[Rfam]
This 307-nucleotide RNA from Lunasporangiospora selenospora belongs to the Rfam family "Group I catalytic intron". From the family's description: Group I catalytic introns are large self-splicing ribozymes. They catalyse their own excision from mRNA, tRNA and rRNA precursors in a wide range of organisms. The core secondary structure consists of 9 paired regions (P1-P9). These fold to essentially two domains - the P4-P6 domain (formed from the stacking of P5, P4, P6 and P6a helices) and the P3-P9 domain (formed from the P8, P3, P7 and P9 helices). It scores 76 bits against the family's covariance model.
Nucleotides: 307
Stems, first nucleotide, its partner, number of pairs: 001021002032043003055247004061241001065143006075134011144194002151187001157182002160179001198286001200285005249272009292305005
Number, partner (000 for none) and nucleotide at each position: 001021u002020u003000a004000a005000u006000u007000a008000a009000a010000u011000u012000g013000c014000a015000a016000u017000a018000u019000a020002g021001a022000g023000g024000c025000u026000c027000c028000u029000u030000a031000a032043a033042a034041c035000a036000g037000u038000a039000a040000u041034g042033u043032u044000u045000u046000a047000g048000u049000g050000g051000c052000a053000a054000a055247u056246a057245g058244g059000g060000a061241g062000a063000a064000u065143u066142g067141c068140a069139a070138g071000g072000a073000c074000a075134u076133c077132u078131u079130u080129a081128u082127u083126a084125a085124a086000a087000a088000u089000u090000u091000g092000a093000a094000g095000a096000a097000a098000c099000u100000c101000u102000c103000c104000c105000c106000a107000u108000c109000u110000u111000c112000a113000a114000a115000u116000a117000a118000a119000u120000g121000a122000a123000a124085u125084u126083u127082a128081a129080u130079a131078a132077a133076g134075a135000c136000a137000a138070u139069u140068u141067g142066c143065a144194g145193c146000g147000g148000a149000g150000c151187u152000u153000g154000a155000u156000u157182c158181g159000g160179u161000a162000u163000a164000c165000a166000u167000u168000g169000u170000u171000u172000a173000u174000u175000a176000a177000c178000a179160a180000a181158u182157g183000a184000a185000u186000c187151a188000a189000g190000a191000a192000c193145g194144u195000u196000c197000a198286a199000c200285g201284a202283c203282u204281a205000a206000c207000a208000g209000g210000u211000g212000a213000g214000u215000a216000c217000u218000a219000c220000c221000a222000a223000c224000a225000a226000u227000a228000a229000u230000c231000c232000u233000g234000a235000c236000a237000c238000g239000a240000g241061c242000a243000c244058c245057c246056u247055a248000c249272a250271c251270c252269a253268a254267u255266u256265u257264a258000u259000a260000a261000g262000u263000a264257u265256a266255a267254a268253u269252u270251g271250g272249u273000u274000g275000a276000a277000g278000a279000c280000a281204u282203a283202g284201u285200c286198u287000a288000a289000a290000c291000c292305c293304a294303a295302u296301g297000g298000u299000g300000a301296c302295a303294u304293u305292g306000g307000g